[Rfam]
RNA sequence: CAAUUGAAUCGUGCGAAACCAAAGACAGCAGGUGUUACCACUUAAUCCCCUGCCGAGGCGUUAGUUAACUUUCACUACUAGUGUUACCCAACAAAAGUAUUUGAACGCUCUGCAAAACCCCGGCUUACAGUCGGGGUUUUUGGUUUAAUAG
Numbered sequence: 001c002a003a004u005u006g007a008a009u010c011g012u013g014c015g016a017a018a019c020c021a022a023a024g025a026c027a028g029c030a031g032g033u034g035u036u037a038c039c040a041c042u043u044a045a046u047c048c049c050c051u052g053c054c055g056a057g058g059c060g061u062u063a064g065u066u067a068a069c070u071u072u073c074a075c076u077a078c079u080a081g082u083g084u085u086a087c088c089c090a091a092c093a094a095a096a097g098u099a100u101u102u103g104a105a106c107g108c109u110c111u112g113c114a115a116a117a118c119c120c121c122g123g124c125u126u127a128c129a130g131u132c133g134g135g136g137u138u139u140u141u142g143g144u145u146u147a148a149u150a151g
Stems, first nucleotide, its partner, number of pairs: 028053005034041002118136008